[Rfam]
RNA: serC leader
Organism: Rhizobium sp. Leaf371
RNA sequence: GGGCAGGACACGCCUCCCUAACGAGGUGCUUUCUAUCUGGAAGGGUAGCCAUC
Numbered sequence: 001g002g003g004c005a006g007g008a009c010a011c012g013c014c015u016c017c018c019u020a021a022c023g024a025g026g027u028g029c030u031u032u033c034u035a036u037c038u039g040g041a042a043g044g045g046u047a048g049c050c051a052u053c
Stems, first nucleotide, its partner, number of pairs: 011028006033048006